[Rfam]
RNA sequence: CCGCGUUGGCAGUGUGGUUAGCUGGUUGUUUAUGUCAUAACAACAGCCACUAGCGACACUGCCUCUGCGU
Numbered sequence: 001c002c003g004c005g006u007u008g009g010c011a012g013u014g015u016g017g018u019u020a021g022c023u024g025g026u027u028g029u030u031u032a033u034g035u036c037a038u039a040a041c042a043a044c045a046g047c048c049a050c051u052a053g054c055g056a057c058a059c060u061g062c063c064u065c066u067g068c069g070u
Base pairs, nucleotide, nucleotide: 002069003068004067005066008062011060012059013058014057015056017054018053019052020051021050023049024048025047026046027045028044029043030042
The record is a 70-nucleotide RNA from Manduca sexta, which matches "mir-34 microRNA precursor family" in Rfam. For this family Rfam cites "Embryonic stem cell-specific MicroRNAs" (Houbaviy et al., Dev Cell, 2003). Gene Ontology terms of the family: RISC complex and miRNA-mediated post-transcriptional gene silencing. Human mir-34a was discovered computationally and later experimentally verified.